[Rfam]
Annotation: The record is a 236-nucleotide RNA from Thermobacillus composti, which matches "glmS glucosamine-6-phosphate activated ribozyme aptamer" in Rfam.

RNA sequence: CCAACGAUUCAAGCGCCAGAACUUGCGGGCCCGUGCUGCUGCCGGCCGUCAUCGUCAUCCGCGGGAAGCGGGGAUUUCGGCAUGGCGGUGCGGCGGCGAGGCGGGCGGCAAGUUGACGAGGCGGGGGUGUUCGAAGUUUUCGGCGGGGACCCUCCGGCUGCAUCCGUUCCAGCCGUCAAGCCGGGAAGGAAAACGACCGGGCGACCGGUCCGACAAAGGUCUCGGCAGAGCGGACC
Numbered sequence: 001c002c003a004a005c006g007a008u009u010c011a012a013g014c015g016c017c018a019g020a021a022c023u024u025g026c027g028g029g030c031c032c033g034u035g036c037u038g039c040u041g042c043c044g045g046c047c048g049u050c051a052u053c054g055u056c057a058u059c060c061g062c063g064g065g066a067a068g069c070g071g072g073g074a075u076u077u078c079g080g081c082a083u084g085g086c087g088g089u090g091c092g093g094c095g096g097c098g099a100g101g102c103g104g105g106c107g108g109c110a111a112g113u114u115g116a117c118g119a120g121g122c123g124g125g126g127g128u129g130u131u132c133g134a135a136g137u138u139u140u141c142g143g144c145g146g147g148g149a150c151c152c153u154c155c156g157g158c159u160g161c162a163u164c165c166g167u168u169c170c171a172g173c174c175g176u177c178a179a180g181c182c183g184g185g186a187a188g189g190a191a192a193a194c195g196a197c198c199g200g201g202c203g204a205c206c207g208g209u210c211c212g213a214c215a216a217a218g219g220u221c222u223c224g225g226c227a228g229a230g231c232g233g234a235c236c
Base pairs, nucleotide, nucleotide: 020114021113022112023111024110025109026108123154124153125152126151127150131143132142133141134140155175156174157173158172159171160170180226181225182224183223184222185221186220195210196209197208198207199206200205

By type it is a riboswitch.